[Rfam]
RNA: U7 small nuclear RNA
Organism: Neogobius melanostomus
RNA sequence: AGAAGUUUGCUCUUUUAUAUUUCUCCAGUAGGUUUCUCAUAACGAGAAGCCCCC
Numbered sequence: 001a002g003a004a005g006u007u008u009g010c011u012c013u014u015u016u017a018u019a020u021u022u023c024u025c026c027a028g029u030a031g032g033u034u035u036c037u038c039a040u041a042a043c044g045a046g047a048a049g050c051c052c053c054c
Base pairs, nucleotide, nucleotide: 031051032050033049034048035047036046037045038044